RNA sequence: UUAUAAGAGGUUCGCGAACUCCCUCUCUAAAAAACUAUGAAAUG
Numbered sequence: 001u002u003a004u005a006a007g008a009g010g011u012u013c014g015c016g017a018a019c020u021c022c023c024u025c026u027c028u029a030a031a032a033a034a035c036u037a038u039g040a041a042a043u044g
Base pairs, nucleotide, nucleotide: 006026007025008024009023010022016036
The record is a 44-nucleotide RNA sequence from Paenibacillus whitsoniae, which matches "PreQ1 (pre queuosine) riboswitch aptamer" in Rfam. The source organism's lineage runs through Bacteria, Bacillati, Bacilli, Caryophanales and Paenibacillus. A reference for the family is Reader et al. (2004), "Identification of four genes necessary for biosynthesis of the modified nucleoside queuosine", J Biol Chem. From the family's description: This family is a bacterial riboswitch that binds to the metabolite preQ1, an intermediate in the biosynthesis of the modified nucleoside queuosine from GTP. One example of this riboswitch is located in the leader of the Bacillus subtilis ykvJKLM (queCDEF) operon which encodes four genes necessary for queuosine production. PreQ1 binding to the riboswitch aptamer is thought to induce premature transcription termination within the leader to down-regulate expression of these genes.